[Rfam]
RNA sequence: CAGAACACCCGCGGGAGUCCGGUGCGACCGGGCUGAGAGGGCGGCUGACCGGGCCGCCGACCGCCUGACCUGAUCCGGAUCAUGCCGGCGAAGGGAGCGCGAAUGGAGAUCGU
Numbered sequence: 001c002a003g004a005a006c007a008c009c010c011g012c013g014g015g016a017g018u019c020c021g022g023u024g025c026g027a028c029c030g031g032g033c034u035g036a037g038a039g040g041g042c043g044g045c046u047g048a049c050c051g052g053g054c055c056g057c058c059g060a061c062c063g064c065c066u067g068a069c070c071u072g073a074u075c076c077g078g079a080u081c082a083u084g085c086c087g088g089c090g091a092a093g094g095g096a097g098c099g100c101g102a103a104u105g106g107a108g109a110u111c112g113u
Base pairs, nucleotide, nucleotide: 006101008099010097011064012063013062014061017033018032019031020030021029040058041057042056043055044054045053046052069094070093071092075088076087077086078085

A member of the RNA family "TPP riboswitch aptamer (THI element)" from Actinomadura sp. WAC 06369, 113 nucleotides long. A search with the family's covariance model found it, with a score of 61 bits. Gene Ontology term of the family: thiamine pyrophosphate binding. Lineage of the source: Bacteria > Bacillati > Actinomycetota > Actinomycetes > Actinomadura. From the family's description: Vitamin B(1) in its active form thiamin pyrophosphate (TPP) is an essential coenzyme that is synthesised by coupling of pyrimidine and thiazole moieties in bacteria.